[Rfam]
RNA sequence: GGUGGUUCUCGGGUGACACACCCUGGAAUCGGGCUCCCUCCUCUCUGGUUCCAGAUGCGUCACCCAAGAAUCGCU
Numbered sequence: 001g002g003u004g005g006u007u008c009u010c011g012g013g014u015g016a017c018a019c020a021c022c023c024u025g026g027a028a029u030c031g032g033g034c035u036c037c038c039u040c041c042u043c044u045c046u047g048g049u050u051c052c053a054g055a056u057g058c059g060u061c062a063c064c065c066a067a068g069a070a071u072c073g074c075u
Stems, first nucleotide, its partner, number of pairs: 002074002005071005011065007019057002022054001025052009
RNA: mir-9223 microRNA precursor family